[Rfam]
RNA sequence: UAUAAAAGUAGUGGGCUGCACACUGGUGUGGAGUCAUAGGAUUAGAGGAUGCAAGCAAUGUUCAGUACUGCCCUAAGGAAAAAAGUGCACAGAGGCCACUCAGUCAUC
Number, nucleotide and partner (000 for none) at each position: 001u000002a000003u000004a000005a000006a107007a000008g105009u000010a000011g000012u000013g000014g000015g000016c000017u000018g000019c000020a000021c000022a066023c065024u064025g063026g061027u060028g059029u058030g000031g000032a000033g056034u055035c000036a000037u000038a000039g052040g000041a050042u049043u048044a000045g000046a000047g000048g043049a042050u041051g000052c039053a000054a000055g034056c033057a000058a029059u028060g027061u026062u000063c025064a024065g023066u022067a000068c000069u000070g000071c000072c000073c000074u000075a000076a000077g000078g000079a000080a000081a000082a000083a000084a000085g000086u000087g000088c000089a000090c000091a000092g000093a000094g000095g000096c000097c000098a000099c000100u000101c000102a000103g000104u000105c008106a000107u006108c000

Rfam assigns this 108-nucleotide RNA sequence from Microcebus murinus to the family "Small nucleolar RNA SNORD67". Rfam's curators write: snoRNA HBII-166 belongs to the C/D family of snoRNAs. The source organism's lineage runs through Eukaryota, Opisthokonta, Dipnotetrapodomorpha, Tetrapoda and Microcebus. Pairs were carried over by alignment from the consensus structure. The literature on the family includes a 2001 paper in EMBO J by Huttenhofer et al., "RNomics: an experimental approach that identifies 201 candidates for novel, small, non-messenger RNAs in mouse". It is annotated as a C/D-box small nucleolar RNA.